[Rfam]
RNA: c-di-AMP riboswitch aptamer (ydaO/yuaA leader)
Organism: Antribacter soli
RNA sequence: CGCCGAGCCCUGUCAACGGUCCUGAGCAGCGACGACAUGACAGGGGCGGGGGAACCAGGUAAGCCGGACGCGCAAGCGUCCUCGGGGUGAAGCCCGGCGAGAGCCGGGCCGGGUGAACGCUCUCCCUAUCCGAACCCGACAGCUCACCUCGUAGGCGUCGAGGAGA
Numbered sequence: 001c002g003c004c005g006a007g008c009c010c011u012g013u014c015a016a017c018g019g020u021c022c023u024g025a026g027c028a029g030c031g032a033c034g035a036c037a038u039g040a041c042a043g044g045g046g047c048g049g050g051g052g053a054a055c056c057a058g059g060u061a062a063g064c065c066g067g068a069c070g071c072g073c074a075a076g077c078g079u080c081c082u083c084g085g086g087g088u089g090a091a092g093c094c095c096g097g098c099g100a101g102a103g104c105c106g107g108g109c110c111g112g113g114u115g116a117a118c119g120c121u122c123u124c125c126c127u128a129u130c131c132g133a134a135c136c137c138g139a140c141a142g143c144u145c146a147c148c149u150c151g152u153a154g155g156c157g158u159c160g161a162g163g164a165g166a
Stems, first nucleotide, its partner, number of pairs: 001157004008045008046152006056084001085137003093108004111131004